[Rfam]
RNA sequence: CCCGGGGUUCGGGCCCCUCUGGCAGGACCGUCCUGCGAUGUCGGACCCUCGCU
Number, nucleotide and partner (000 for none) at each position: 001c000002c000003c000004g000005g000006g047007g046008u045009u044010c043011g042012g041013g000014c000015c000016c000017c000018u000019c000020u000021g000022g036023c035024a034025g033026g032027a031028c000029c000030g000031u027032c026033c025034u024035g023036c022037g000038a000039u000040g000041u012042c011043g010044g009045a008046c007047c006048c000049u000050c000051g000052c000053u000
This 53-nucleotide sequence from Elioraea tepida belongs to the Rfam family "terC RNA".
NCBI's taxonomy places the organism under Bacteria, Pseudomonadati, Alphaproteobacteria, Acetobacterales, Elioraea.